6S / SsrS RNA: a 184-nucleotide sequence from Vibrio cholerae. Rfam classes the family as a non-coding RNA gene. Rfam describes the family as follows. E. coli 6S RNA was the first non coding RNA to be sequenced, but its function was unknown until recently. It consists of 184 nucleotides that fold into an extended hairpin structure with a large single-stranded internal bulge. The 6S RNA specifically associates with RNA polymerase holoenzyme containing the sigma70 specificity factor. The sequence is in the family's curated seed alignment.

RNA sequence: UUUACCCUGGGGUGUUCGUCAGCGGAUUUAUGUCCCUGAGCCGAUAAGCAACAUAACAGGGUUGGUAUUGGGUAGCUAUUGAGCAAGCUCGGCUUGUACCGAGAAGCCUGCGGUUACCAUUACUGAUCCGCCUUGAACCUGAUGGUUCAAGGGCUACGAUCCUCAACGGCAUCCCGGGGUUCUC
Number, nucleotide and partner (000 for none) at each position: 001u000002u000003u000004a180005c179006c178007c177008u176009g175010g174011g173012g172013u171014g170015u169016u000017c168018g167019u166020c000021a000022g000023c000024g000025g000026a000027u000028u000029u000030a000031u000032g154033u153034c152035c151036c000037u149038g148039a147040g146041c145042c144043g000044a000045u000046a000047a000048g000049c000050a000051a000052c000053a000054u000055a000056a000057c000058a000059g129060g128061g127062u000063u125064g124065g123066u122067a121068u000069u000070g000071g118072g117073u116074a115075g114076c113077u112078a000079u000080u000081g000082a000083g107084c106085a000086a000087g000088c103089u102090c101091g100092g099093c000094u000095u000096g000097u000098a000099c092100c091101g090102a089103g088104a000105a000106g084107c083108c000109u000110g000111c000112g077113g076114u075115u074116a073117c072118c071119a000120u000121u067122a066123c065124u064125g063126a000127u061128c060129c059130g000131c000132c000133u000134u000135g000136a000137a000138c000139c000140u000141g000142a000143u000144g042145g041146u040147u039148c038149a037150a000151g035152g034153g033154c032155u000156a000157c000158g000159a000160u000161c000162c000163u000164c000165a000166a019167c018168g017169g015170c014171a013172u012173c011174c010175c009176g008177g007178g006179g005180u004181u000182c000183u000184c000